The record is a 103-nucleotide RNA from Ectobacillus ponti, which matches "SAM riboswitch aptamer (S box leader)" in Rfam. A search with the family's covariance model found it, with a score of 75 bits. The base pairs follow the family's consensus structure, which is taken from published work. Rfam 15.1 lists 9,625 matches to the family in 4,158 species.
RNA sequence: UACUUAUCAAGAGCAGGUGGAGGGAUGAGCCCUACGAAGCCCGGCAACCGACCCUAAGGGGCACGGUGCUAAUUCUCACAGCGCGCGAGCUGAUAGAUAAGGA
Numbered sequence: 001u002a003c004u005u006a007u008c009a010a011g012a013g014c015a016g017g018u019g020g021a022g023g024g025a026u027g028a029g030c031c032c033u034a035c036g037a038a039g040c041c042c043g044g045c046a047a048c049c050g051a052c053c054c055u056a057a058g059g060g061g062c063a064c065g066g067u068g069c070u071a072a073u074u075c076u077c078a079c080a081g082c083g084c085g086c087g088a089g090c091u092g093a094u095a096g097a098u099a100a101g102g103a
Stems, first nucleotide, its partner, number of pairs: 001103001003101006013042001016041003022032003026078004043070004048066002050062001052060002074095001079092004